[Rfam]
RNA sequence: GAUCGCAGUGACGACUCAUUAAAAUUCAAGCUCAACAGACCGGAUUGCAGGCUUCUCUCUUUUGAGAAUUUUGCUUGCGUGUCGAUCACCCCGCUGAACUGAGCGAUC
Numbered sequence: 001g002a003u004c005g006c007a008g009u010g011a012c013g014a015c016u017c018a019u020u021a022a023a024a025u026u027c028a029a030g031c032u033c034a035a036c037a038g039a040c041c042g043g044a045u046u047g048c049a050g051g052c053u054u055c056u057c058u059c060u061u062u063u064g065a066g067a068a069u070u071u072u073g074c075u076u077g078c079g080u081g082u083c084g085a086u087c088a089c090c091c092c093g094c095u096g097a098a099c100u101g102a103g104c105g106a107u108c
Base pairs, nucleotide, nucleotide: 001108002107003106004105005104006103
The family of this 108-nucleotide RNA from Cephalotus follicularis is "Small nucleolar RNA Z107/R87". Taxonomically the source falls in Cephalotus (Eukaryota, Streptophytina, rosids, fabids). The match comes from Rfam's covariance-model search (100 bits). The literature on the family includes a 2001 paper in J Mol Biol by Barneche et al., "Identification of 66 box C/D snoRNAs in Arabidopsis thaliana: extensive gene duplications generated multiple isoforms predicting new ribosomal RNA 2'-O-methylation sites". The family's consensus secondary structure was predicted with RNAfold. By type it is a C/D-box small nucleolar RNA.